[Rfam]
RNA: mir-92 microRNA precursor family
RNA sequence: ACUUCUCCCCGGGUUGGGAUUUGUUGCACUACUUGUAGGUUCUCUGAACAGUAUUGCACUUGUCCCGGCCUGUGGAGGGGCU
Dot-bracket structure: ...(((...(((((.(((((..((.(((.((((................)))).)))))..))))).)))))...)))....
Numbered sequence: 001a002c003u004u005c006u007c008c009c010c011g012g013g014u015u016g017g018g019a020u021u022u023g024u025u026g027c028a029c030u031a032c033u034u035g036u037a038g039g040u041u042c043u044c045u046g047a048a049c050a051g052u053a054u055u056g057c058a059c060u061u062g063u064c065c066c067g068g069c070c071u072g073u074g075g076a077g078g079g080g081c082u
Stems, first nucleotide, its partner, number of pairs: 004078003010072005016066005023059002026057003030053004